[Rfam]
RNA sequence: AUGCCAGUAAAUUGUCUGCUUAACUUGAUGAUGUUCUGCAGAAACUAUUAGGAUGGUACUGGCAAUAAGAAAGCCAUGGUACGAGCCUUAAAGACUUGCUAGUCCUUAAGGUCCCUGAAAAUGGCUACAUGU
Dot-bracket structure: ..(((((.......(((((..................)))))................))))).........((((........(((((((.(((......))).))))))).........)))).......
RNA: Small nucleolar RNA SNORA33
Organism: Pelodiscus sinensis